U4 spliceosomal RNA: a 139-nucleotide RNA from Crocuta crocuta.
U4 small nuclear RNA (U4 snRNA) is a component of the major U2-dependent spliceosome.
Taxonomically the source falls in Crocuta (Eukaryota, Deuterostomia, Theria, Feliformia).
The family's consensus secondary structure is taken from published work.
A search with the family's covariance model found it, with a score of 49 bits.
RNA sequence: AGCAUUGCUCGGUGGCAAUAUCAUAGCCAGUGAGGUUUAUCUGAGGCAGAUUAUUGUUGACUGAAAACUCUUCACAAUGGCAGAGGAAUGAUAUCUGAUUCCAAGUACUGUGUCUUCCCCCCUGCUGUGCUCCUGAGCA
Numbered sequence: 001a002g003c004a005u006u007g008c009u010c011g012g013u014g015g016c017a018a019u020a021u022c023a024u025a026g027c028c029a030g031u032g033a034g035g036u037u038u039a040u041c042u043g044a045g046g047c048a049g050a051u052u053a054u055u056g057u058u059g060a061c062u063g064a065a066a067a068c069u070c071u072u073c074a075c076a077a078u079g080g081c082a083g084a085g086g087a088a089u090g091a092u093a094u095c096u097g098a099u100u101c102c103a104a105g106u107a108c109u110g111u112g113u114c115u116u117c118c119c120c121c122c123u124g125c126u127g128u129g130c131u132c133c134u135g136a137g138c139a
Stems, first nucleotide, its partner, number of pairs: 020051003024048001026047003034042002082123002085119002088116001090114005128139004